[Rfam]
RNA sequence: GAUAAGGGGAGUGAAAAACUUCCCCGCCGAAAGACCAAGGGUUCCUGUCCAACGCUAAUCGGGGCAGGGUGAGUCGACCCCUAAGGCGAGGCUGAGAAGCGUAGUCGAUGGGAAACGGGUUAAUAUUCCCGUACUUGCAAUAACUGCGAUGGAGAGACGGAGAAGGCUAGGCGUACCGGGCGUUGGUUGUCCCGGGGAAAGUGCGUAGGCCGAGGACUUAGGAAAAUCCGGGUCCUUAAAGCUGAGACACGAGACCACUGCCCAUGUGGCGGGAAGUCGUCGAUGCCAAGCUUCCAGGAAAUACCUUCUAAGCUUCAGGUUAUUGUGAAUCGUACCCCAAACCGACACAGGUGGUCGGGUAGAGAAUACCAAGGCGCU
Numbered sequence: 001g002a003u004a005a006g007g008g009g010a011g012u013g014a015a016a017a018a019c020u021u022c023c024c025c026g027c028c029g030a031a032a033g034a035c036c037a038a039g040g041g042u043u044c045c046u047g048u049c050c051a052a053c054g055c056u057a058a059u060c061g062g063g064g065c066a067g068g069g070u071g072a073g074u075c076g077a078c079c080c081c082u083a084a085g086g087c088g089a090g091g092c093u094g095a096g097a098a099g100c101g102u103a104g105u106c107g108a109u110g111g112g113a114a115a116c117g118g119g120u121u122a123a124u125a126u127u128c129c130c131g132u133a134c135u136u137g138c139a140a141u142a143a144c145u146g147c148g149a150u151g152g153a154g155a156g157a158c159g160g161a162g163a164a165g166g167c168u169a170g171g172c173g174u175a176c177c178g179g180g181c182g183u184u185g186g187u188u189g190u191c192c193c194g195g196g197g198a199a200a201g202u203g204c205g206u207a208g209g210c211c212g213a214g215g216a217c218u219u220a221g222g223a224a225a226a227u228c229c230g231g232g233u234c235c236u237u238a239a240a241g242c243u244g245a246g247a248c249a250c251g252a253g254a255c256c257a258c259u260g261c262c263c264a265u266g267u268g269g270c271g272g273g274a275a276g277u278c279g280u281c282g283a284u285g286c287c288a289a290g291c292u293u294c295c296a297g298g299a300a301a302u303a304c305c306u307u308c309u310a311a312g313c314u315u316c317a318g319g320u321u322a323u324u325g326u327g328a329a330u331c332g333u334a335c336c337c338c339a340a341a342c343c344g345a346c347a348c349a350g351g352u353g354g355u356c357g358g359g360u361a362g363a364g365a366a367u368a369c370c371a372a373g374g375c376g377c378u
Stems, first nucleotide, its partner, number of pairs: 006024006025376004033356004039336002044068006053061002075332003080111002085106003089102001091100003115132005135328011146313002151308004159294004165287003170281004176195005197255001201250003208243003213236007221229002258273002262269002342351002358370004
RNA: Bacterial large subunit ribosomal RNA, nucleotides 1251 to 1628